About this RNA:
The record is a 91-nucleotide sequence from Gorilla gorilla, which matches "mir-337 microRNA precursor family" in Rfam.
RNA sequence: AGUCAGUAGUUGGGGGGUGGGAACGGCUUCAUACAGGAGUUGAUGCACAGUUAUCCAGCUCCUAUAUGAUGCCUUUCUUCAUCCCCUUCAA
Numbered sequence: 001a002g003u004c005a006g007u008a009g010u011u012g013g014g015g016g017g018u019g020g021g022a023a024c025g026g027c028u029u030c031a032u033a034c035a036g037g038a039g040u041u042g043a044u045g046c047a048c049a050g051u052u053a054u055c056c057a058g059c060u061c062c063u064a065u066a067u068g069a070u071g072c073c074u075u076u077c078u079u080c081a082u083c084c085c086c087u088u089c090a091a
Stems, first nucleotide, its partner, number of pairs: 012087009021077003025073003029069005035063008043054003